Alphaproteobacteria transfer-messenger RNA: a 360-nucleotide RNA from Litorimonas taeanensis. A search with the family's covariance model found it, with a score of 250 bits. The source organism's lineage runs through Bacteria, Pseudomonadati, Pseudomonadota, Maricaulales and Litorimonas. Bacterial tmRNA, also known as 10Sa RNA or SsrA, is named for its dual tRNA and mRNA-like properties. Its role is to liberate the mRNA from a stalled ribosome. To accomplish this part of the tmRNA is used as a reading frame that ends in a translation stop signal. The broken mRNA is replaced in the ribosome by the tmRNA and translation of the tmRNA leads to addition of a proteolysis tag to the incomplete protein enabling recognition by a protease. Pairs were carried over by alignment from the consensus structure, which is taken from published work.
RNA sequence: AGCCUUUCAUUUCCUACAAUCUUGCUUACGUUAUAGAAGUCAGCUUGCUGACUAUGAGGAUAAACGCGCUCAUAAUAGACGGACUGGACCCGGGGGCGGUACCCGGCGGCUCCACCAAAAACGCUCAGACUAGCUGAGCGCUUUUGAUGGGGCCGAAAUAGGAUCGACAGACGUUCAAAAGGGUUAGCUUUCUUCCGUAUGGGUACCGUUAAAUGCCCGUUCUUUAUAAUUGCAAAUGACAAUUAUUCUGAGGAAUUUGCCCUAGCUGCGUAAGCAGUUCGGACAUUCCGACUUUAACUCCUAGCCCUUCAGACGGCUAGGCGGGCUUCGGUGGGUAGCUGGCAACAGAAACCCACCACU
Dot-bracket structure: ......................................(((((....)))))...(((((.....((((((........((..(((...(((((.......)))))(((((((...................................)))))))............))).)).......))))..))..)))))((....[[...))........]].........................................................................................................[[[[..((((((.]]]]...........))))))...